The family of this 85-nucleotide RNA sequence from Bacillus sp. 1NLA3E is "c-di-GMP-I riboswitch aptamer".
Nucleotides: 085
Base pairs, nucleotide, nucleotide: 012037013036017032018031020029021028022027040079041078042077043076047075048074049071050070051069056065
Number, partner (000 for none) and nucleotide at each position: 001000c002000a003000a004000a005000c006000g007000a008000a009000a010000a011000g012037g013036c014000a015000a016000a017032c018031c019000u020029u021028g022027a023000g024000a025000a026000a027022u028021c029020a030000u031018g032017g033000g034000a035000c036013g037012c038000a039000a040079a041078a042077c043076u044000a045000u046000a047075g048074g049071g050070a051069c052000u053000u054000a055000c056065g057000a058000g059000c060000a061000a062000u063000g064000c065056c066000g067000a068000a069051g070050u071049c072000a073000g074048c075047c076043a077042g078041u079040u080000a081000c082000c083000g084000a085000a
A search with the family's covariance model found it, with a score of 67 bits. The source organism's lineage runs through Bacteria, Bacillati, Bacillota, Bacilli and Bacillus. GEMM was predicted in a large-scale screen for bacterial structured RNA regulatory elements. The family's consensus secondary structure is taken from published work.